[Rfam]
RNA: Small nucleolar RNA SNORD127
RNA sequence: UGGCAACGAUGAUGACAGGAAUUGUCACUGCAUGUAAUGUCCCAUUACAGCGUGGAGACAGCAGUCCCUCUAAACUGACGUUGCCG
Numbered sequence: 001u002g003g004c005a006a007c008g009a010u011g012a013u014g015a016c017a018g019g020a021a022u023u024g025u026c027a028c029u030g031c032a033u034g035u036a037a038u039g040u041c042c043c044a045u046u047a048c049a050g051c052g053u054g055g056a057g058a059c060a061g062c063a064g065u066c067c068c069u070c071u072a073a074a075c076u077g078a079c080g081u082u083g084c085c086g
Stems, first nucleotide, its partner, number of pairs: 001086007